Rfam assigns this 87-nucleotide RNA sequence from Arabis nemorensis to the family "Small nucleolar RNA R11/Z151". Taxonomically the source falls in Arabis (Eukaryota, Spermatophyta, Pentapetalae, Brassicales). A reference for the family is Barneche et al. (2001), "Identification of 66 box C/D snoRNAs in Arabidopsis thaliana: extensive gene duplications generated multiple isoforms predicting new ribosomal RNA 2'-O-methylation sites", J Mol Biol. The base pairs follow the family's consensus structure, which was predicted with PFOLD.
RNA sequence: CAGCCGAUGAGGAUAGAACAAUUUAUCUUAGCGGAUUUCAGUGAGGUUUUUAAUCAAUGAUCUGAAUUGUUACACACACUGAGGCUC
Numbered sequence: 001c002a003g004c005c006g007a008u009g010a011g012g013a014u015a016g017a018a019c020a021a022u023u024u025a026u027c028u029u030a031g032c033g034g035a036u037u038u039c040a041g042u043g044a045g046g047u048u049u050u051u052a053a054u055c056a057a058u059g060a061u062c063u064g065a066a067u068u069g070u071u072a073c074a075c076a077c078a079c080u081g082a083g084g085c086u087c
Stems, first nucleotide, its partner, number of pairs: 002086004